[Rfam]
RNA sequence: UGCAGGGUGGAGCAGCUCGGUAGCUCGUCAGGCUCAUAACCUGAAGGUCCUUGGUUCAAAUCCAAGCCCUGCAC
Numbered sequence: 001u002g003c004a005g006g007g008u009g010g011a012g013c014a015g016c017u018c019g020g021u022a023g024c025u026c027g028u029c030a031g032g033c034u035c036a037u038a039a040c041c042u043g044a045a046g047g048u049c050c051u052u053g054g055u056u057c058a059a060a061u062c063c064a065a066g067c068c069c070u071g072c073a074c
Stems, first nucleotide, its partner, number of pairs: 001073007010026004028044005050066005
This 74-nucleotide RNA from Ruficoccus amylovorans belongs to the Rfam family "tRNA". On this family, see Hou, Trends Biochem Sci 1993: "The tertiary structure of tRNA and the development of the genetic code". Rfam classes the family as a transfer RNA. The organism belongs to Ruficoccus, within Bacteria.